Background: This 91-nucleotide RNA from Gemmobacter lutimaris belongs to the Rfam family "L2-Alphaproteobacteria ribosomal protein leader". It is annotated as a cis-regulatory leader. The source organism's lineage runs through Bacteria, Pseudomonadota, Rhodobacterales, Paracoccaceae and Gemmobacter. The literature on the family includes a 2020 paper in BMC Microbiol by Eckert and Weinberg, "Discovery of 20 novel ribosomal leader candidates in bacteria and archaea".
RNA sequence: GGGGAUCUUCGGAGCCCUUCAACCGCGCGAAAGCGACCUGAAAGCCGCAAGGAUCGAGGGGCGUUAUGCGCAAGCUAACGGAAGACAGAAA
Numbered sequence: 001g002g003g004g005a006u007c008u009u010c011g012g013a014g015c016c017c018u019u020c021a022a023c024c025g026c027g028c029g030a031a032a033g034c035g036a037c038c039u040g041a042a043a044g045c046c047g048c049a050a051g052g053a054u055c056g057a058g059g060g061g062c063g064u065u066a067u068g069c070g071c072a073a074g075c076u077a078a079c080g081g082a083a084g085a086c087a088g089a090a091a
Stems, first nucleotide, its partner, number of pairs: 001018004006014001008012001027069003031065001